[Rfam]
RNA: SAM riboswitch aptamer (S box leader)
Organism: Polaribacter sp. WD7
RNA sequence: AUGUUAUCAAGAAAGGCGGAGGGAUUAGACCCGUUGAAACCUUAGCAACCCUUUAACUUUUAAAGAAGGUGCUAAAUUCUACCCAAGUACCAAACUUGUUUUGGUAUCUC
Number, nucleotide and partner (000 for none) at each position: 001a000002u000003g108004u000005u106006a105007u104008c103009a000010a000011g000012a000013a043014a042015g041016g040017c000018g000019g000020a000021g032022g031023g030024a000025u000026u000027a000028g080029a078030c023031c022032c021033g000034u000035u000036g000037a000038a000039a000040c016041c015042u014043u013044a073045g072046c071047a070048a000049c069050c068051c065052u064053u063054u062055a000056a000057c000058u000059u000060u000061u000062a054063a053064a052065g051066a000067a000068g050069g049070u047071g046072c045073u044074a000075a000076a000077u000078u029079c000080u028081a000082c000083c000084c098085a097086a096087g095088u094089a000090c000091c000092a000093a000094a088095c087096u086097u085098g084099u000100u000101u000102u000103g008104g007105u006106a005107u000108c003109u000110c000